[Rfam]
RNA sequence: GUCCCUGGUCGUGACUGGCGAAGGUGGGCUCAACCACCGGGAAGCGGCUGAGGUUCCCUGCCGAGGGCGCCGCCCGCCUGGGCGCCCUGU
Number, nucleotide and partner (000 for none) at each position: 001g000002u000003c053004c052005c000006u050007g049008g048009u047010c046011g045012u044013g000014a000015c041016u040017g078018g077019c076020g075021a000022a000023g000024g037025u036026g035027g034028g000029c000030u000031c000032a000033a000034c027035c026036a025037c024038c000039g000040g016041g015042a000043a000044g012045c011046g010047g009048c008049u007050g006051a000052g004053g003054u000055u000056c000057c000058c000059u000060g000061c000062c000063g000064a000065g000066g000067g085068c084069g083070c082071c081072g000073c000074c000075c020076g019077c018078c017079u000080g000081g071082g070083c069084g068085c067086c000087c000088u000089g000090u000
This 90-nucleotide sequence from Flavimobilis soli belongs to the Rfam family "ZMP/ZTP riboswitch aptamer (pfl RNA motif)". The source organism's lineage runs through Bacteria, Bacillati, Actinomycetes, Jonesiaceae and Flavimobilis.